[Rfam]
RNA sequence: GUUAUUUGAGGUGGUAAAAUGUUGCAACCACACACCCUAGAGGUCAAAAGAGAUGUAGGAACGGCGACUCCUACCAAAUAAC
Dot-bracket structure: ((((((((..(((((.....[[[[[.))))).((((.....))).....)....(((((....]]]]].)))))))))))))
Shown here is an 82-nucleotide RNA, a member of the family "skipping-rope RNA". The family's consensus secondary structure is taken from published work.